[Rfam]
RNA sequence: UGAUGACAAAUUCUCCGGAAUCUCUGUACUUAGUUGAUGAAACACCUUUGAACCUUUUAUCUGAUGACUGCCUGUUUUUUGUAAUC
Numbered sequence: 001u002g003a004u005g006a007c008a009a010a011u012u013c014u015c016c017g018g019a020a021u022c023u024c025u026g027u028a029c030u031u032a033g034u035u036g037a038u039g040a041a042a043c044a045c046c047u048u049u050g051a052a053c054c055u056u057u058u059a060u061c062u063g064a065u066g067a068c069u070g071c072c073u074g075u076u077u078u079u080u081g082u083a084a085u086c
Stems, first nucleotide, its partner, number of pairs: 002086003006082004
The family of this 86-nucleotide RNA sequence from Muraenolepis orangiensis is "Small nucleolar RNA MBII-202".
Lineage of the source: Eukaryota > Bilateria > Teleostomi > Acanthomorphata > Muraenolepis.
For this family Rfam cites "RNomics: an experimental approach that identifies 201 candidates for novel, small, non-messenger RNAs in mouse" (Huttenhofer et al., EMBO J, 2001).
A search with the family's covariance model found it, with a score of 61 bits.